[Rfam]
RNA sequence: CUUGAUCGAGCCGAGCCACAGGGGGCGCCCCGCGGGGCGGCCCUGGCCGUAGGUGGCCAGGAGCGCCUGGGCCUC
Numbered sequence: 001c002u003u004g005a006u007c008g009a010g011c012c013g014a015g016c017c018a019c020a021g022g023g024g025g026c027g028c029c030c031c032g033c034g035g036g037g038c039g040g041c042c043c044u045g046g047c048c049g050u051a052g053g054u055g056g057c058c059a060g061g062a063g064c065g066c067c068u069g070g071g072c073c074u075c
Base pairs, nucleotide, nucleotide: 016024017023031071033069038065039064043060044059045058047056048055049054
Shown here is a 75-nucleotide RNA from Streptomyces sp. YIM 121038, a member of the family "ASpks TB sRNA". It scores 79 bits against the family's covariance model. Lineage of the source: Bacteria > Bacillati > Actinomycetes > Kitasatosporales > Streptomyces. The base pairs follow the family's consensus structure, which is taken from published work. The family has 77 seed sequences and 9,052 matches in Rfam 15.1.